RNA: Selenocysteine transfer RNA
Organism: Kineosphaera limosa
RNA sequence: GGAGGCGCCUGGGCACCUGGUGGGCUCCUCGGUCUUCAACACCGAUGUGCGGCGGUAUCCGUCGCGGGCGGGUUCGAUUCCCGUGCGUCUCC
Numbered sequence: 001g002g003a004g005g006c007g008c009c010u011g012g013g014c015a016c017c018u019g020g021u022g023g024g025c026u027c028c029u030c031g032g033u034c035u036u037c038a039a040c041a042c043c044g045a046u047g048u049g050c051g052g053c054g055g056u057a058u059c060c061g062u063c064g065c066g067g068g069c070g071g072g073u074u075c076g077a078u079u080c081c082c083g084u085g086c087g088u089c090u091c092c
Stems, first nucleotide, its partner, number of pairs: 001092008011027004016023002029045005048066005069083004